RNA: Small nucleolar RNA SNORA29
Organism: Acipenser ruthenus
RNA sequence: UAUCCCGUUUUUAGUACCAUUCAUUUAGCCCAAAAGAAUGCGUGGCUAUGCUAAUGGGAGAGAGAAACUUUGUCGUUGUCUGAAGGAGAGGCUGGCAGUAUUACCCAGCUUUCCUACAUGAAAUGACAGCACAUUGAAUA
Number, nucleotide and partner (000 for none) at each position: 001u000002a000003u000004c058005c057006c056007g055008u000009u000010u000011u000012u000013a000014g000015u000016a000017c045018c044019a043020u042021u000022c000023a000024u000025u000026u000027a000028g000029c000030c000031c000032a000033a000034a000035a000036g000037a000038a000039u000040g000041c000042g020043u019044g018045g017046c000047u000048a000049u000050g000051c000052u000053a000054a000055u007056g006057g005058g004059a000060g000061a000062g000063a000064g000065a000066a000067a000068c000069u000070u000071u000072g127073u126074c125075g124076u000077u000078g000079u000080c000081u000082g000083a000084a000085g000086g000087a000088g000089a115090g114091g113092c000093u000094g000095g000096c000097a000098g000099u000100a000101u000102u000103a000104c000105c000106c000107a000108g000109c000110u000111u000112u000113c091114c090115u089116a000117c000118a000119u000120g000121a000122a000123a000124u075125g074126a073127c072128a000129g000130c000131a000132c000133a000134u000135u000136g000137a000138a000139u000140a000